[Rfam]
RNA sequence: UUGCGCUGCUAAAGCCGCCUGUGCUUUAGAACAGUUAACACAGGGGGGUAGAGGAUGCCUCUCACUCAAACCUGGGGCAGGGCUGAUAAACUCUCUGCUUUCGGAUCCUGUCGUGAGAAACAGUU
Numbered sequence: 001u002u003g004c005g006c007u008g009c010u011a012a013a014g015c016c017g018c019c020u021g022u023g024c025u026u027u028a029g030a031a032c033a034g035u036u037a038a039c040a041c042a043g044g045g046g047g048g049u050a051g052a053g054g055a056u057g058c059c060u061c062u063c064a065c066u067c068a069a070a071c072c073u074g075g076g077g078c079a080g081g082g083c084u085g086a087u088a089a090a091c092u093c094u095c096u097g098c099u100u101u102c103g104g105a106u107c108c109u110g111u112c113g114u115g116a117g118a119a120a121c122a123g124u125u
Stems, first nucleotide, its partner, number of pairs: 002050003006046002009043002014039001017036001019034001061117005072104004076099003080095003085091001